This 172-nucleotide sequence from Duffyella gerundensis belongs to the Rfam family "Manganese Mn2+ riboswitch aptamer (yybP-ykoY)". The pairing is the family consensus, mapped onto this sequence. The source organism's lineage runs through Bacteria, Pseudomonadati, Pseudomonadota, Enterobacterales and Duffyella. About the family: This RNA was originally discovered in E. coli during a large scale screen and was named SraF. The family was later found to exist upstream of related families of protein genes in many bacteria, including the the yybP and ykoK genes in B. subtilis. The specific functions of these proteins are unknown, but this structured RNA element may be involved in their genetic regulation as a riboswitch. On this family, see Argaman et al., Curr Biol 2001: "Novel small RNA-encoding genes in the intergenic regions of Escherichia coli".
[Rfam]
RNA sequence: GCCGCCGUCGUUGGGGAGUAGCCGGCUUCUGUUUUUUCAGAAGCGCACCAGUCAACAUACUCGUUCCGCAGAACGUGGUUGGUGCGACCUGUCAGGUUGGCGAGACCAAAGACACAUGGGCCGGUCAGGUUGGGAAGGCUUGUGUGUUAUUUGGAUUCCCGGCCGAGGUCAU
Numbered sequence: 001g002c003c004g005c006c007g008u009c010g011u012u013g014g015g016g017a018g019u020a021g022c023c024g025g026c027u028u029c030u031g032u033u034u035u036u037u038c039a040g041a042a043g044c045g046c047a048c049c050a051g052u053c054a055a056c057a058u059a060c061u062c063g064u065u066c067c068g069c070a071g072a073a074c075g076u077g078g079u080u081g082g083u084g085c086g087a088c089c090u091g092u093c094a095g096g097u098u099g100g101c102g103a104g105a106c107c108a109a110a111g112a113c114a115c116a117u118g119g120g121c122c123g124g125u126c127a128g129g130u131u132g133g134g135a136a137g138g139c140u141u142g143u144g145u146g147u148u149a150u151u152u153g154g155a156u157u158c159c160c161g162g163c164c165g166a167g168g169u170c171a172u
Base pairs, nucleotide, nucleotide: 025044026043027042045085046084047083048082049081050080051079052078053077054076062075063074064073065072066071086172089167090166